Background:
Rfam assigns this 255-nucleotide sequence from Dimorphilus gyrociliatus to the family "RNase MRP". The match comes from Rfam's covariance-model search (127 bits).
RNA sequence: UGUCAGUUAAGAGAUUCGCUUUCGAAGUUACACACGGGUCCUUUGUGACUCUGAAAAGAACUUGGGGGAAAGUCCCUGGACAUUGGGCAGAGAGUGCCCUGCGCGUAAGCGUGGAAGGUGGCUGCUCUAUAACGUUCCUAUCACAGAGAUGCUAUAAAAGCUAGUGGAAGGGUACGGCUUUAGAGUGGAUGCCUCUCGUCUAAGCAAAGUUAUGCGAAUGCUUUCCAACUGGACAGGGCUUAUUCCUUGACUGAC
Numbered sequence: 001u002g003u004c005a006g007u008u009a010a011g012a013g014a015u016u017c018g019c020u021u022u023c024g025a026a027g028u029u030a031c032a033c034a035c036g037g038g039u040c041c042u043u044u045g046u047g048a049c050u051c052u053g054a055a056a057a058g059a060a061c062u063u064g065g066g067g068g069a070a071a072g073u074c075c076c077u078g079g080a081c082a083u084u085g086g087g088c089a090g091a092g093a094g095u096g097c098c099c100u101g102c103g104c105g106u107a108a109g110c111g112u113g114g115a116a117g118g119u120g121g122c123u124g125c126u127c128u129a130u131a132a133c134g135u136u137c138c139u140a141u142c143a144c145a146g147a148g149a150u151g152c153u154a155u156a157a158a159a160g161c162u163a164g165u166g167g168a169a170g171g172g173u174a175c176g177g178c179u180u181u182a183g184a185g186u187g188g189a190u191g192c193c194u195c196u197c198g199u200c201u202a203a204g205c206a207a208a209g210u211u212a213u214g215c216g217a218a219u220g221c222u223u224u225c226c227a228a229c230u231g232g233a234c235a236g237g238g239c240u241u242a243u244u245c246c247u248u249g250a251c252u253g254a255c
Base pairs, nucleotide, nucleotide: 002255003254004253005252006251007250008249009248010247011246014219015218016217017216018215019214022066023065025063026062027061028060036051037050038049039048040047070241071240072239074238075237076236077235086098087097088096089095099114100113101112102111103110104109116190124186125185126184127183128182129181142172144170151161152160153159